[Rfam]
Rfam assigns this 139-nucleotide RNA from Molossus molossus to the family "U4 spliceosomal RNA". By type it is a spliceosomal small nuclear RNA. NCBI's taxonomy places the organism under Eukaryota, Craniata, Teleostomi, Mammalia, Molossus. Rfam's curators write: U4 small nuclear RNA (U4 snRNA) is a component of the major U2-dependent spliceosome.
RNA sequence: AGCUUUGUGCAGUGGCAGUAUCGUAGCCAAUGAGGUUUAUCCGAAGUGCGAUUAUUGCUAAGUAUAAAAAAAAAAAAAAAAAAAGAAGGAAUGACUAGAUUUAUCGAAUACUCUUAAAACGUGGCACAACCUUACAGUU
Numbered sequence: 001a002g003c004u005u006u007g008u009g010c011a012g013u014g015g016c017a018g019u020a021u022c023g024u025a026g027c028c029a030a031u032g033a034g035g036u037u038u039a040u041c042c043g044a045a046g047u048g049c050g051a052u053u054a055u056u057g058c059u060a061a062g063u064a065u066a067a068a069a070a071a072a073a074a075a076a077a078a079a080a081a082a083a084a085g086a087a088g089g090a091a092u093g094a095c096u097a098g099a100u101u102u103a104u105c106g107a108a109u110a111c112u113c114u115u116a117a118a119a120c121g122u123g124g125c126a127c128a129a130c131c132u133u134a135c136a137g138u139u
Base pairs, nucleotide, nucleotide: 020052021051022050023049024048026047027046034042035041086115087114088113089111091109092108098105099104128139129138130137